[Rfam]
RNA: mir-9242 microRNA precursor family
RNA sequence: GGCCUCCCUCUGUGGGGUGAUUGAUCACGGGGCUCCCAUAUCGAUCGCCCUGUAGAGGGAGGCC
Numbered sequence: 001g002g003c004c005u006c007c008c009u010c011u012g013u014g015g016g017g018u019g020a021u022u023g024a025u026c027a028c029g030g031g032g033c034u035c036c037c038a039u040a041u042c043g044a045u046c047g048c049c050c051u052g053u054a055g056a057g058g059g060a061g062g063c064c
Base pairs, nucleotide, nucleotide: 001064002063003062004061005060006059007058008057009056010055011054012053013052014051015050016049017048018047019046020045021044022043023042024041025040029036030035